[Rfam]
RNA sequence: ACUCCGCCCCCUUGCAGAUGAGACCCUAUCAAUAUUGCCUCUGCUUUCACUAGCCUUAACACAGUAGUGCAAUAUUGCUUAUAGGGUCUUGACUCUGAGGGAUG
Numbered sequence: 001a002c003u004c005c006g007c008c009c010c011c012u013u014g015c016a017g018a019u020g021a022g023a024c025c026c027u028a029u030c031a032a033u034a035u036u037g038c039c040u041c042u043g044c045u046u047u048c049a050c051u052a053g054c055c056u057u058a059a060c061a062c063a064g065u066a067g068u069g070c071a072a073u074a075u076u077g078c079u080u081a082u083a084g085g086g087u088c089u090u091g092a093c094u095c096u097g098a099g100g101g102a103u104g
Stems, first nucleotide, its partner, number of pairs: 020090010030077009041067005